[Rfam]
RNA sequence: UAAAAGAUGAUGAACGGGAAAAGUAAGUAAUGGUUGUUAUUACAGAGAGCCAUGGAUGCUGUGAUCAUGGUAUGAGAAUUGUUACCCAAGUUCACCCGGGAGUUGCUCACUGAAGUUAUGUAGGUGAUGCCGGAACCCAGCCGUUAGAUAAUGGGAGAGUAUCGGUUUUUGAAACCCGCACUUGAUUGAGAUAGCCUUUUGGCUAAAUAAGGUGGUAACGUGAGUACAGUCCUCGCCCUUUCU
Numbered sequence: 001u002a003a004a005a006g007a008u009g010a011u012g013a014a015c016g017g018g019a020a021a022a023g024u025a026a027g028u029a030a031u032g033g034u035u036g037u038u039a040u041u042a043c044a045g046a047g048a049g050c051c052a053u054g055g056a057u058g059c060u061g062u063g064a065u066c067a068u069g070g071u072a073u074g075a076g077a078a079u080u081g082u083u084a085c086c087c088a089a090g091u092u093c094a095c096c097c098g099g100g101a102g103u104u105g106c107u108c109a110c111u112g113a114a115g116u117u118a119u120g121u122a123g124g125u126g127a128u129g130c131c132g133g134a135a136c137c138c139a140g141c142c143g144u145u146a147g148a149u150a151a152u153g154g155g156a157g158a159g160u161a162u163c164g165g166u167u168u169u170u171g172a173a174a175c176c177c178g179c180a181c182u183u184g185a186u187u188g189a190g191a192u193a194g195c196c197u198u199u200u201g202g203c204u205a206a207a208u209a210a211g212g213u214g215g216u217a218a219c220g221u222g223a224g225u226a227c228a229g230u231c232c233u234c235g236c237c238c239u240u241u242c243u
Stems, first nucleotide, its partner, number of pairs: 007103002015098004027085005038074003049071006106129001107127005131143003193204004209240004220236005
Shown here is a 243-nucleotide RNA from Pectinatus cerevisiiphilus, a member of the family "T-box leader". On this family, see Grundy et al., J Bacteriol 1994: "Interaction between the acceptor end of tRNA and the T box stimulates antitermination in the Bacillus subtilis tyrS gene: a new role for the discriminator base". The family's consensus secondary structure is taken from published work. It is annotated as a cis-regulatory leader.